This 77-nucleotide RNA from Jannaschia pohangensis belongs to the Rfam family "L2-Alphaproteobacteria ribosomal protein leader". It scores 47 bits against the family's covariance model. For this family Rfam cites "Discovery of 20 novel ribosomal leader candidates in bacteria and archaea" (Eckert and Weinberg, BMC Microbiol, 2020). Taxonomically the source falls in Jannaschia (Bacteria, Pseudomonadota, Alphaproteobacteria, Rhodobacterales). The family's consensus secondary structure is taken from published work.

[Rfam]
RNA sequence: GGGGACCUUCGGGGCCCUUACAUCCAGGGCGGAGUUCGUUUGAUCGGGGCCGUCCGACACACAACGGAAGACAGGUA
Numbered sequence: 001g002g003g004g005a006c007c008u009u010c011g012g013g014g015c016c017c018u019u020a021c022a023u024c025c026a027g028g029g030c031g032g033a034g035u036u037c038g039u040u041u042g043a044u045c046g047g048g049g050c051c052g053u054c055c056g057a058c059a060c061a062c063a064a065c066g067g068a069a070g071a072c073a074g075g076u077a
Stems, first nucleotide, its partner, number of pairs: 001018004006014003027055006